[Rfam]
RNA sequence: AAUACACGGGAUCGCCAUCCAUCAGCGCGUUGCGCCCAUGGGUGACGUUGUC
Numbered sequence: 001a002a003u004a005c006a007c008g009g010g011a012u013c014g015c016c017a018u019c020c021a022u023c024a025g026c027g028c029g030u031u032g033c034g035c036c037c038a039u040g041g042g043u044g045a046c047g048u049u050g051u052c
Stems, first nucleotide, its partner, number of pairs: 016044007025035004